[Rfam]
RNA: Group I catalytic intron
RNA sequence: AUGAUAAGGUUGUAUGUACAGCCUUCUUGUGGAAGUGAACCUUCUGCUACAAAUCGUCAAAUUGCGGGAACACCCUAAAGCAAUCAUAACCAAACAAGAGUGGUAACACAUCUUGUGGCACAGGUAAUGACUCGUGGUAUGGUAAAAUCAUGGUUGAUAUUAAUGGGUUAUCCGCAGCCAAGCGUCUGUUAAUAAUUAUUAAUAAACAGAUGUGCAGUUCAUCGACUAAAUGGUGAUUGGUGUUAUAGACAGAUAUUGAUAUAAUGCUUAAGAUAUAGUCAGGCCUCAUUCGAAAGAAUGCA
Numbered sequence: 001a002u003g004a005u006a007a008g009g010u011u012g013u014a015u016g017u018a019c020a021g022c023c024u025u026c027u028u029g030u031g032g033a034a035g036u037g038a039a040c041c042u043u044c045u046g047c048u049a050c051a052a053a054u055c056g057u058c059a060a061a062u063u064g065c066g067g068g069a070a071c072a073c074c075c076u077a078a079a080g081c082a083a084u085c086a087u088a089a090c091c092a093a094a095c096a097a098g099a100g101u102g103g104u105a106a107c108a109c110a111u112c113u114u115g116u117g118g119c120a121c122a123g124g125u126a127a128u129g130a131c132u133c134g135u136g137g138u139a140u141g142g143u144a145a146a147a148u149c150a151u152g153g154u155u156g157a158u159a160u161u162a163a164u165g166g167g168u169u170a171u172c173c174g175c176a177g178c179c180a181a182g183c184g185u186c187u188g189u190u191a192a193u194a195a196u197u198a199u200u201a202a203u204a205a206a207c208a209g210a211u212g213u214g215c216a217g218u219u220c221a222u223c224g225a226c227u228a229a230a231u232g233g234u235g236a237u238u239g240g241u242g243u244u245a246u247a248g249a250c251a252g253a254u255a256u257u258g259a260u261a262u263a264a265u266g267c268u269u270a271a272g273a274u275a276u277a278g279u280c281a282g283g284c285c286u287c288a289u290u291c292g293a294a295a296g297a298a299u300g301c302a
Stems, first nucleotide, its partner, number of pairs: 006025008031041002052238005058232002063176006073167003177218002182213003188207003222281001224280005240267008287300005